[Rfam]
RNA sequence: ACCAUCCUUUUCUUGGGGUUGCGCUACUGUCCAAUGAACGCCUAGUGAGGGCAGUACUGCUAACGCCUAAACAACACGUUCGCAUCAGGCCGGGCUCUGCUUUGCCUUGGUGCAAUUUUUGGAACA
Numbered sequence: 001a002c003c004a005u006c007c008u009u010u011u012c013u014u015g016g017g018g019u020u021g022c023g024c025u026a027c028u029g030u031c032c033a034a035u036g037a038a039c040g041c042c043u044a045g046u047g048a049g050g051g052c053a054g055u056a057c058u059g060c061u062a063a064c065g066c067c068u069a070a071a072c073a074a075c076a077c078g079u080u081c082g083c084a085u086c087a088g089g090c091c092g093g094g095c096u097c098u099g100c101u102u103u104g105c106c107u108u109g110g111u112g113c114a115a116u117u118u119u120u121g122g123a124a125c126a
Stems, first nucleotide, its partner, number of pairs: 006018004021060003026055007038046002082113006090104001092102004
This 126-nucleotide RNA from Myotis lucifugus belongs to the Rfam family "U4atac minor spliceosomal RNA". The family's RNA type in Rfam is spliceosomal small nuclear RNA. Its family is annotated with pre-mRNA 5'-splice site binding, spliceosomal tri-snRNP complex assembly and U4atac snRNP in the Gene Ontology. The family's consensus secondary structure is taken from published work. Rfam's curators write: U4atac is an essential component of the minor U12-type spliceosome complex which is required for removal of the rarer class of eukaryotic introns (AT-AC, U12-type). Clan: U4 clan. The sequence is in the family's curated seed alignment. A reference for the family is Marz et al. (2008), "Evolution of spliceosomal snRNA genes in metazoan animals", J Mol Evol. NCBI's taxonomy places the organism under Eukaryota, Craniata, Euteleostomi, Sarcopterygii, Myotis.